[Rfam]
RNA: MIR1520 microRNA precursor family
Organism: Glycine max
Nucleotides: 112
Base pairs, nucleotide, nucleotide: 014100015099017097018096021093022092025089026088027087028086030084031083032082
Number, partner (000 for none) and nucleotide at each position: 001000u002000u003000u004000u005000a006000g007000u008000u009000g010000a011000a012000c013000u014100c015099a016000c017097g018096u019000g020000u021093c022092a023000c024000g025089u026088u027087u028086u029000g030084a031083u032082u033000g034000g035000a036000u037000g038000u039000u040000g041000a042000c043000u044000c045000u046000a047000u048000c049000g050000a051000c052000g053000a054000u055000a056000a057000a058000a059000a060000u061000g062000u063000a064000u065000u066000a067000u068000u069000g070000u071000u072000a073000u074000c075000a076000a077000c078000g079000u080000c081000u082032a083031a084030u085000u086028a087027g088026a089025a090000c091000a092022u093021g094000a095000c096018a097017c098000g099015u100014g101000u102000a103000g104000u105000u106000a107000a108000u109000a110000c111000u112000c